[Rfam]
RNA sequence: GAUGGAUCAAAUCCAAUCCAUUAACAAAUAUUUUUGUUUGAUGGAUGGAUUGGAUGGAUUUUAUA
Numbered sequence: 001g002a003u004g005g006a007u008c009a010a011a012u013c014c015a016a017u018c019c020a021u022u023a024a025c026a027a028a029u030a031u032u033u034u035u036g037u038u039u040g041a042u043g044g045a046u047g048g049a050u051u052g053g054a055u056g057g058a059u060u061u062u063a064u065a
Stems, first nucleotide, its partner, number of pairs: 004061005011055012025040005
RNA: MIR5291 microRNA precursor family